A member of the RNA family "mir-29 microRNA precursor family" from Gadus morhua, 68 nucleotides long.
Taxonomically the source falls in Gadus (Eukaryota, Bilateria, Euteleosteomorpha, Neoteleostei).
The family's consensus secondary structure was predicted with PFOLD.
The family has 168 seed sequences and 3,328 matches in Rfam 15.1.
Gene Ontology terms of the family: gene silencing by miRNA and RISC complex.
This family represents the microRNA (miRNA) precursors mir-29.
The match comes from Rfam's covariance-model search (55 bits).
On this family, see Ambros, Cell 2001: "microRNAs: tiny regulators with great potential".
[Rfam]
RNA sequence: GGAAGCUGGUUUCCGAUGGUGGCUUAGAGUGCGGUCCUCCAUCUAGCACCAUUUGAAAUCAGUGGCGC
Numbered sequence: 001g002g003a004a005g006c007u008g009g010u011u012u013c014c015g016a017u018g019g020u021g022g023c024u025u026a027g028a029g030u031g032c033g034g035u036c037c038u039c040c041a042u043c044u045a046g047c048a049c050c051a052u053u054u055g056a057a058a059u060c061a062g063u064g065g066c067g068c
Base pairs, nucleotide, nucleotide: 002066004063006062007061008060009059010058011057012056013055016052017051018050019049020048021047025045026044027043028042
Dot-bracket structure: .(.(.((((((((..((((((...((((.............)))).))))))..)))))))))..)..